[Rfam]
RNA sequence: UCCUGAGACGGGAACCGAGCUGAUUUCACUUUCGGUGAUAUGUCCAUGAUGCGCCUAUCACCGGGUGUAAAUUGGCUCGGGUCCCGUCUCGGGAU
Number, nucleotide and partner (000 for none) at each position: 001u000002c000003c000004u000005g000006a000007g000008a000009c000010g085011g084012g083013a082014a000015c080016c079017g000018a077019g076020c075021u074022g073023a072024u071025u070026u069027c000028a000029c000030u065031u064032u000033c063034g000035g061036u060037g059038a058039u057040a056041u000042g000043u000044c000045c000046a000047u000048g000049a000050u000051g000052c000053g000054c000055c000056u040057a039058u038059c037060a036061c035062c000063g033064g031065g030066u000067g000068u000069a026070a025071a024072u023073u022074g021075g020076c019077u018078c000079g016080g015081g000082u013083c012084c011085c010086g000087u000088c000089u000090c000091g000092g000093g000094a000095u000
Description: This 95-nucleotide RNA from Caenorhabditis brenneri belongs to the Rfam family "mir-36 microRNA precursor family". The base pairs follow the family's consensus structure, which was predicted with WAR. Rfam's curators put it in the seed alignment. A reference for the family is Ohler et al. (2004), "Patterns of flanking sequence conservation and a characteristic upstream motif for microRNA gene identification", RNA. Lineage of the source: Eukaryota > Eumetazoa > Chromadorea > Rhabditoidea > Caenorhabditis.